About this RNA:
U12 minor spliceosomal RNA: a 150-nucleotide sequence from Magallana gigas. A search with the family's covariance model found it, with a score of 126 bits. The organism belongs to Magallana, within Eukaryota.
RNA sequence: AUGCCUUAAACUAAUGAGUAAGGAAAAUAAUGAACCUGGGUAGCGCCAGGUUCCAGAGUAUUUCUCUGAGGAAUUUGUGAAAGGGCACAGGUCGCCCCCACGGUGACCCGCCUACUUCAGCGGGAUGCCUGGGUAGAUGUGAUCUGCCUG
Dot-bracket structure: ...(((((..........)))))........((((((((......))))))))(((((.....)))))..............((((..(((((((..((..((((.(((((........))))).))))..)).....))))))))))).
Numbered sequence: 001a002u003g004c005c006u007u008a009a010a011c012u013a014a015u016g017a018g019u020a021a022g023g024a025a026a027a028u029a030a031u032g033a034a035c036c037u038g039g040g041u042a043g044c045g046c047c048a049g050g051u052u053c054c055a056g057a058g059u060a061u062u063u064c065u066c067u068g069a070g071g072a073a074u075u076u077g078u079g080a081a082a083g084g085g086c087a088c089a090g091g092u093c094g095c096c097c098c099c100a101c102g103g104u105g106a107c108c109c110g111c112c113u114a115c116u117u118c119a120g121c122g123g124g125a126u127g128c129c130u131g132g133g134u135a136g137a138u139g140u141g142a143u144c145u146g147c148c149u150g
Stems, first nucleotide, its partner, number of pairs: 004023005032053008054068005083149004089145007098133002102129004107124005